[Rfam]
RNA sequence: CACGGGCAGUUUGAGUUGAUUCGCUCUUUAUUGAUGGAGCUUGGGUCAAAUUACUGUCCGAAAAUGAUAGAGAAGAAGAUCUAAUCAAUUUGAAUUGUCUUCCUUAUGAAGAUGAUUUAUCAAUAGUCUCUUCCCACACUU
Numbered sequence: 001c002a003c004g005g006g007c008a009g010u011u012u013g014a015g016u017u018g019a020u021u022c023g024c025u026c027u028u029u030a031u032u033g034a035u036g037g038a039g040c041u042u043g044g045g046u047c048a049a050a051u052u053a054c055u056g057u058c059c060g061a062a063a064a065u066g067a068u069a070g071a072g073a074a075g076a077a078g079a080u081c082u083a084a085u086c087a088a089u090u091u092g093a094a095u096u097g098u099c100u101u102c103c104u105u106a107u108g109a110a111g112a113u114g115a116u117u118u119a120u121c122a123a124u125a126g127u128c129u130c131u132u133c134c135c136a137c138a139c140u141u
Base pairs, nucleotide, nucleotide: 003060004059005058006057007056008055009054010053016049017048018047019046020045021044022043023040024039025038026037027036072133073132075131077129078128079127

Overview:
Rfam assigns this 141-nucleotide sequence from Caenorhabditis briggsae to the family "Caenorhabditis snoRNA ceN59". NCBI's taxonomy places the organism under Eukaryota, Opisthokonta, Eumetazoa, Peloderinae, Caenorhabditis. The family's RNA type in Rfam is H/ACA-box small nucleolar RNA. The sequence is in the family's curated seed alignment.